A member of the RNA family "L4-Archaeoglobi ribosomal protein leades", 100 nucleotides long. On this family, see Eckert and Weinberg, BMC Microbiol 2020: "Discovery of 20 novel ribosomal leader candidates in bacteria and archaea". Rfam classes the family as a cis-regulatory leader.
RNA sequence: CUGACGGCCGCGUCCGGGUCAAUUGCGAACUGCAACACCCAACCGCCCUCCGUGCGCCUCCGUCGAUGGAGGUGCGGGAGGGGCAACGCGUCGCCAUCAG
Numbered sequence: 001c002u003g004a005c006g007g008c009c010g011c012g013u014c015c016g017g018g019u020c021a022a023u024u025g026c027g028a029a030c031u032g033c034a035a036c037a038c039c040c041a042a043c044c045g046c047c048c049u050c051c052g053u054g055c056g057c058c059u060c061c062g063u064c065g066a067u068g069g070a071g072g073u074g075c076g077g078g079a080g081g082g083g084c085a086a087c088g089c090g091u092c093g094c095c096a097u098c099a100g
Stems, first nucleotide, its partner, number of pairs: 001100004009090005016040003023035005045084005050077005
Dot-bracket structure: ((((....(((((..(((....(((((...)))))..)))....((((((((((..................)))))..))))).)))))......))))